[Rfam]
RNA sequence: AUAAAUUCGAUGCGUAGAAAUAGUAGUUAACUAAGUGAGAUUUUAGCGAAUCAGGGAUAGUGAAAGCCUGAUAUUAGCUUGUUAAUGAAUGGGUCUACAAGAAACUUGAUGAAAUGAAAUGUUUAGAGUAGUCAAUGUCGGGGAUUUCCCGUUAUAGAAAUAGGAUAUCAAAUCAUAAGAUUUCGUAUCUGUAGAGAAGGGCUAUCUAUUAGAUAGUCUAAAGGUGGUACCACGAAAAUAUGUCUUUCGUCCUUUUU
Numbered sequence: 001a002u003a004a005a006u007u008c009g010a011u012g013c014g015u016a017g018a019a020a021u022a023g024u025a026g027u028u029a030a031c032u033a034a035g036u037g038a039g040a041u042u043u044u045a046g047c048g049a050a051u052c053a054g055g056g057a058u059a060g061u062g063a064a065a066g067c068c069u070g071a072u073a074u075u076a077g078c079u080u081g082u083u084a085a086u087g088a089a090u091g092g093g094u095c096u097a098c099a100a101g102a103a104a105c106u107u108g109a110u111g112a113a114a115u116g117a118a119a120u121g122u123u124u125a126g127a128g129u130a131g132u133c134a135a136u137g138u139c140g141g142g143g144a145u146u147u148c149c150c151g152u153u154a155u156a157g158a159a160a161u162a163g164g165a166u167a168u169c170a171a172a173u174c175a176u177a178a179g180a181u182u183u184c185g186u187a188u189c190u191g192u193a194g195a196g197a198a199g200g201g202c203u204a205u206c207u208a209u210u211a212g213a214u215a216g217u218c219u220a221a222a223g224g225u226g227g228u229a230c231c232a233c234g235a236a237a238a239u240a241u242g243u244c245u246u247u248c249g250u251c252c253u254u255u256u257u
Base pairs, nucleotide, nucleotide: 007102008101015097016096017095018094026086027085028084029083030082031081039075040074041073050072051071052070053069054068055067105137106135107134108133109132110131139151140150141149202216203215204214205213206212207211221254222253223252224251232250233249234248235247236246
This 257-nucleotide sequence from Anaerosalibacter massiliensis belongs to the Rfam family "T-box leader". By type it is a cis-regulatory leader. Rfam's curators write: Uncharged tRNA acts as the effector for transcription antitermination of genes in the T-box leader family. T-boxes are found upstream of many aminoacyl-tRNA synthetase genes and some amino acid biosynthetic genes usually in Gram-positive bacteria. The anticodon of a specific tRNA base pairs to a specifier sequence within the T-box motif, and the NCCA acceptor tail of the tRNA base pairs to a conserved bulge in the T-box antiterminator hairpin. Gene Ontology term of the family: tRNA binding.